[Rfam]
Nucleotides: 086
Stems, first nucleotide, its partner, number of pairs: 001086007
Number, partner (000 for none) and nucleotide at each position: 001086u002085g003084g004083c005082a006081a007080c008000u009000a010000u011000g012000a013000u014000g015000a016000a017000a018000g019000a020000u021000u022000u023000g024000c025000u026000c027000u028000g029000u030000a031000u032000g033000u034000a035000a036000u037000a038000u039000a040000u041000u042000u043000u044000a045000u046000u047000a048000c049000u050000a051000c052000a053000u054000g055000a056000a057000g058000a059000c060000a061000g062000c063000a064000g065000u066000c067000c068000c069000u070000c071000u072000a073000a074000a075000c076000u077000g078000a079000u080007g081006u082005u083004g084003c085002c086001a

Shown here is an 86-nucleotide sequence from Canis lupus, a member of the family "Small nucleolar RNA SNORD127".
Rfam classes the family as a C/D-box small nucleolar RNA.
Pairs were carried over by alignment from the consensus structure, which was predicted with WAR.
The sequence is in the family's curated seed alignment.
Taxonomically the source falls in Canis lupus (Eukaryota, Craniata, Dipnotetrapodomorpha, Canis).
The family has 13 seed sequences and 541 matches in Rfam 15.1.
Gene Ontology terms of the family: nucleolus and RNA processing.